A member of the RNA family "c-di-AMP riboswitch aptamer (ydaO/yuaA leader)" from Actinomadura soli, 141 nucleotides long. Lineage of the source: Bacteria > Bacillati > Actinomycetota > Thermomonosporaceae > Actinomadura. A search with the family's covariance model found it, with a score of 82 bits.
RNA sequence: GAAGCGGCAACGCCGAGUCCGCCGUCGCGCGGAGCCGGGGACCCACAUCGCACUGGGGUGAAUCGGCCUGCCCCCAGGCCGAAGGGCGACUUCCACGUCCGAACCCGUCAGCUAACCCGGUAGGCGUCUGGAAGCCAAGGA
Numbered sequence: 001g002a003a004g005c006g007g008c009a010a011c012g013c014c015g016a017g018u019c020c021g022c023c024g025u026c027g028c029g030c031g032g033a034g035c036c037g038g039g040g041a042c043c044c045a046c047a048u049c050g051c052a053c054u055g056g057g058g059u060g061a062a063u064c065g066g067c068c069u070g071c072c073c074c075c076a077g078g079c080c081g082a083a084g085g086g087c088g089a090c091u092u093c094c095a096c097g098u099c100c101g102a103a104c105c106c107g108u109c110a111g112c113u114a115a116c117c118c119g120g121u122a123g124g125c126g127u128c129u130g131g132a133a134g135c136c137a138a139g140g141a
Base pairs, nucleotide, nucleotide: 011126012125013124014123018033019032020031021030022029034121035120036119037118038117039116044055045054056106057105058104064081065080066079067078084100085099086098087097